This 114-nucleotide RNA sequence from Oceanibaculum indicum belongs to the Rfam family "TPP riboswitch aptamer (THI element)". A search with the family's covariance model found it, with a score of 56 bits.
RNA sequence: CGCCGACCUCGGGGGAGCCAUCAGGCUGAGAGGUCGCCUCCCGCGCGGGGAUGCGACGACCCCAAGAACCUGAUCCCGCUAGCACGGGCGUAGGGAAGAGGACAUGCACGGGAC
Numbered sequence: 001c002g003c004c005g006a007c008c009u010c011g012g013g014g015g016a017g018c019c020a021u022c023a024g025g026c027u028g029a030g031a032g033g034u035c036g037c038c039u040c041c042c043g044c045g046c047g048g049g050g051a052u053g054c055g056a057c058g059a060c061c062c063c064a065a066g067a068a069c070c071u072g073a074u075c076c077c078g079c080u081a082g083c084a085c086g087g088g089c090g091u092a093g094g095g096a097a098g099a100g101g102a103c104a105u106g107c108a109c110g111g112g113a114c
Stems, first nucleotide, its partner, number of pairs: 007101004011063004017026003033057005069094004075088004
Pairs were carried over by alignment from the consensus structure, which is taken from published work. Taxonomically the source falls in Oceanibaculum indicum (Bacteria, Pseudomonadota, Alphaproteobacteria, Oceanibaculaceae).